tRNA: an 82-nucleotide RNA sequence from Acholeplasma laidlawii.
Taxonomically the source falls in Acholeplasma (Bacteria, Bacillati, Mycoplasmatota, Mollicutes).
Rfam describes the family as follows. Transfer RNA (tRNA) molecules are approximately 80 nucleotides in length.
It is one of the family's seed sequences.
RNA sequence: GCGGGUGUGGCGAAAUUGGCAGACGCACUAGACUUAGGAUCUAGCGCUUUACGGCAUGCAGGUUCAAGUCCUGUCACCCGCA
Numbered sequence: 001g002c003g004g005g006u007g008u009g010g011c012g013a014a015a016u017u018g019g020c021a022g023a024c025g026c027a028c029u030a031g032a033c034u035u036a037g038g039a040u041c042u043a044g045c046g047c048u049u050u051a052c053g054g055c056a057u058g059c060a061g062g063u064u065c066a067a068g069u070c071c072u073g074u075c076a077c078c079c080g081c082a
Base pairs, nucleotide, nucleotide: 001081002080003079004078005077006076007075010026011025012024028044029043030042031041032040058074059073060072061071062070
Rfam classes the family as a transfer RNA.